[Rfam]
RNA sequence: CCAAAGGCUCUUUUAAGAGCCACCUACCUCUCCACUGAAGAGCUUU
Number, nucleotide and partner (000 for none) at each position: 001c000002c000003a000004a000005a000006g021007g020008c019009u018010c017011u016012u000013u000014u000015a000016a011017g010018a009019g008020c007021c006022a000023c000024c000025u000026a000027c000028c000029u000030c000031u000032c000033c000034a000035c000036u000037g000038a000039a000040g000041a000042g000043c000044u000045u000046u000